Small nucleolar RNA snoR27: a 91-nucleotide RNA sequence from Beta vulgaris. Pairs were carried over by alignment from the consensus structure, which was predicted with WAR. The family is grouped with related families in Rfam's "snR68 clan". Its family is annotated with nucleolus and RNA processing in the Gene Ontology. It is annotated as a C/D-box small nucleolar RNA. For this family Rfam cites "Multiple snoRNA gene clusters from Arabidopsis" (Brown et al., RNA, 2001).
RNA sequence: AAUGGAUAAAUGAUGUGAUACAAACUGCGUUAUCUACCUGCAAAUUCCUCUCGAGGAAUUGAAGAAAAUUUAUAGUACUCUGAUAUCCAUG
Dot-bracket structure: .((((((.............................................................................)))))).
Numbered sequence: 001a002a003u004g005g006a007u008a009a010a011u012g013a014u015g016u017g018a019u020a021c022a023a024a025c026u027g028c029g030u031u032a033u034c035u036a037c038c039u040g041c042a043a044a045u046u047c048c049u050c051u052c053g054a055g056g057a058a059u060u061g062a063a064g065a066a067a068a069u070u071u072a073u074a075g076u077a078c079u080c081u082g083a084u085a086u087c088c089a090u091g
Stems, first nucleotide, its partner, number of pairs: 002090006